This 448-nucleotide RNA from Pseudanabaena belongs to the Rfam family "Bacterial RNase P class A". Lineage of the source: Bacteria > Cyanobacteriota > Cyanophyceae > Pseudanabaenales > Pseudanabaenaceae. Rfam's curators put it in the seed alignment. The family's RNA type in Rfam is ribozyme.
RNA sequence: AAGAGUAAGCGAGCAGUUGCGAAAUUAGUCUUAAAGUAUAAUGAAAAUUUGCUUUAAGUACGGAUUUUGAGGAAAGUCCGGGCUUCCAAGAAGAUCAGGCUGCUGGAUAACGCCCAGUGCGAGCAAUCGUGAGGAUAGUGCCACAGAAAGAUACCGCCUAACUUCGGUUAGGUAAGGGUGCAAAGGUGUGUUAAGAGCGCACCAGCAGGGUCGUGAGGCUCUGGCUCGGUAAACCCCAGUCGGAAGCAAGGCGAGAGGAAAUAAGCGUUGCGAUCUUCAAUAGACCUUAUUUCCGUGACUUAACUGCGUUUAGUGCGCGAAAGCGUGGCAAGCGUAGUUAAGUGUGUGCCGCAAGAGGUAUUUGGUAACAAAUAUCCCAGAUAGAUAACCGCUAGGGCAGUUGUUAUCAACUCCCAAAACAGAACCCGGCUUAUGUCUUACUCUUUCU
Numbered sequence: 001a002a003g004a005g006u007a008a009g010c011g012a013g014c015a016g017u018u019g020c021g022a023a024a025u026u027a028g029u030c031u032u033a034a035a036g037u038a039u040a041a042u043g044a045a046a047a048u049u050u051g052c053u054u055u056a057a058g059u060a061c062g063g064a065u066u067u068u069g070a071g072g073a074a075a076g077u078c079c080g081g082g083c084u085u086c087c088a089a090g091a092a093g094a095u096c097a098g099g100c101u102g103c104u105g106g107a108u109a110a111c112g113c114c115c116a117g118u119g120c121g122a123g124c125a126a127u128c129g130u131g132a133g134g135a136u137a138g139u140g141c142c143a144c145a146g147a148a149a150g151a152u153a154c155c156g157c158c159u160a161a162c163u164u165c166g167g168u169u170a171g172g173u174a175a176g177g178g179u180g181c182a183a184a185g186g187u188g189u190g191u192u193a194a195g196a197g198c199g200c201a202c203c204a205g206c207a208g209g210g211u212c213g214u215g216a217g218g219c220u221c222u223g224g225c226u227c228g229g230u231a232a233a234c235c236c237c238a239g240u241c242g243g244a245a246g247c248a249a250g251g252c253g254a255g256a257g258g259a260a261a262u263a264a265g266c267g268u269u270g271c272g273a274u275c276u277u278c279a280a281u282a283g284a285c286c287u288u289a290u291u292u293c294c295g296u297g298a299c300u301u302a303a304c305u306g307c308g309u310u311u312a313g314u315g316c317g318c319g320a321a322a323g324c325g326u327g328g329c330a331a332g333c334g335u336a337g338u339u340a341a342g343u344g345u346g347u348g349c350c351g352c353a354a355g356a357g358g359u360a361u362u363u364g365g366u367a368a369c370a371a372a373u374a375u376c377c378c379a380g381a382u383a384g385a386u387a388a389c390c391g392c393u394a395g396g397g398c399a400g401u402u403g404u405u406a407u408c409a410a411c412u413c414c415c416a417a418a419a420c421a422g423a424a425c426c427c428g429g430c431u432u433a434u435g436u437c438u439u440a441c442u443c444u445u446u447c448u
Base pairs, nucleotide, nucleotide: 001445002444003443004442005441006440007439008438009437011434012393013392014391016389017388018387020069021068022067023066024065025064026063028061074432075431076430078429079428080427081426082425083246084245085244086243096328098241099240100239101238102237103117104116105115106114118132119130120129121128122127133236134235138234139233140230141229142228154177155176156173157172158171159170160169161168162167185203186202187201188200189199190198205225206223207222208221209220210219211218212217250350251349252348253347262341264339265338323335324334325333326332357376358375359374360373361372362371363370364369